[Rfam]
RNA sequence: UUGGAGGGUUUGAAUACUUCAACUUGAAGACUUGGAGGGUUUGAAUACUUCAACUUGAAGACUUGGAAGGCUUGAAUACUUCAACU
Numbered sequence: 001u002u003g004g005a006g007g008g009u010u011u012g013a014a015u016a017c018u019u020c021a022a023c024u025u026g027a028a029g030a031c032u033u034g035g036a037g038g039g040u041u042u043g044a045a046u047a048c049u050u051c052a053a054c055u056u057g058a059a060g061a062c063u064u065g066g067a068a069g070g071c072u073u074g075a076a077u078a079c080u081u082c083a084a085c086u
Stems, first nucleotide, its partner, number of pairs: 001084006009076005018067004025059001028056001032053006
This 86-nucleotide RNA sequence from Nicotiana tabacum belongs to the Rfam family "MIR8024 microRNA precursor family". Taxonomically the source falls in Nicotiana (Eukaryota, Streptophyta, Spermatophyta, Mesangiospermae). Rfam links the family to the GO terms miRNA-mediated post-transcriptional gene silencing and RISC complex.